[Rfam]
Rfam assigns this 135-nucleotide RNA from Chelydra serpentina to the family "Small Cajal body specific RNA 15".
RNA sequence: CUGGAGGUCUAAGAAAGUAGAGCCAAUGAAGUCAAAGGGGCUCUAUUGAUACUGUCCUCCUACAUUAAAUGGUAGAAAAUAGCUACCAUGGCUUCUGCAAGAUGGAGUCAGGAUCUGCUUAAUCUACCAACAAUC
Numbered sequence: 001c002u003g004g005a006g007g008u009c010u011a012a013g014a015a016a017g018u019a020g021a022g023c024c025a026a027u028g029a030a031g032u033c034a035a036a037g038g039g040g041c042u043c044u045a046u047u048g049a050u051a052c053u054g055u056c057c058u059c060c061u062a063c064a065u066u067a068a069a070u071g072g073u074a075g076a077a078a079a080u081a082g083c084u085a086c087c088a089u090g091g092c093u094u095c096u097g098c099a100a101g102a103u104g105g106a107g108u109c110a111g112g113a114u115c116u117g118c119u120u121a122a123u124c125u126a127c128c129a130a131c132a133a134u135c
Base pairs, nucleotide, nucleotide: 003060004059005058006057007056010051011050018045019044020043021042022041023040024039027034028033071128072127073126074125075124076123085114087112089110090109
Its family is annotated with RNA processing, Cajal body and nucleolus in the Gene Ontology. Clan: SCARNA4 clan. The family's RNA type in Rfam is small Cajal body RNA. Rfam describes the family as follows. scaRNAs are a specific class of small nuclear RNAs which localise to the Cajal bodies and guide the modification of RNA polymerase II transcribed spliceosomal RNAs U1, U2, U4, U5 and U12. ACA45 belongs to the H/ACA box class of guide RNAs as it has the predicted hairpin-hinge-hairpin-tail structure, the conserved H/ACA-box motifs and is found associated with GAR1. ACA45 is predicted to guide the pseudouridylation of residue U37 of the U2 spliceosomal snRNA. A search with the family's covariance model found it, with a score of 68 bits. The literature on the family includes a 2002 paper in EMBO J by Darzacq et al., "Cajal body-specific small nuclear RNAs: a novel class of 2'-O-methylation and pseudouridylation guide RNAs".